RNA sequence: AGAUGAGAGAUACACCCGCCCGCAGGGGACUGCGGGCGGUCAGGCCGGGGCCUCCCCAGCUUCGACCUGGUCGUGCCUCGCGCACACAACCGGGGCUCCGGCUCCGGAUUCUCCGCACGAUCGGA
Dot-bracket structure: ...((.(.((.....((((((((((....))))))))))(((((.((((((.......)))))).)))))..((((.....))))....(((((((....)))))))....))).))(....)..

The family of this 125-nucleotide RNA sequence from Streptomyces echinoruber is "Streptomyces RNA 5676".
A reference for the family is Vockenhuber et al. (2011), "Deep sequencing-based identification of small non-coding RNAs in Streptomyces coelicolor", RNA Biol.
The pairing is the family consensus, mapped onto this sequence.